[Rfam]
RNA sequence: UGGAUACUCGGUCUCCGACCCGGUGGUCCUAAGGCGGGUGCCUUGCCGCUAUGGCAACCGGGCGAUAGGGUUUACCUGGAAACGGGUAAGCCUCCCAUAUGGAAAGGAGCCGCUGGUAAACUGAG
Numbered sequence: 001u002g003g004a005u006a007c008u009c010g011g012u013c014u015c016c017g018a019c020c021c022g023g024u025g026g027u028c029c030u031a032a033g034g035c036g037g038g039u040g041c042c043u044u045g046c047c048g049c050u051a052u053g054g055c056a057a058c059c060g061g062g063c064g065a066u067a068g069g070g071u072u073u074a075c076c077u078g079g080a081a082a083c084g085g086g087u088a089a090g091c092c093u094c095c096c097a098u099a100u101g102g103a104a105a106g107g108a109g110c111c112g113c114u115g116g117u118a119a120a121c122u123g124a125g
Stems, first nucleotide, its partner, number of pairs: 011111001013109004019062006026055001028054002033050004068093011094102002
Record summary:
The record is a 125-nucleotide sequence from Syntrophothermus lipocalidus, which matches "Molybdenum/Tungsten riboswitch aptamer (Moco RNA motif)" in Rfam. The match comes from Rfam's covariance-model search (62 bits). For this family Rfam cites "in molybdenum cofactor and tungsten cofactor metabolism" (Regulski et al., Mol Microbiol, 2008).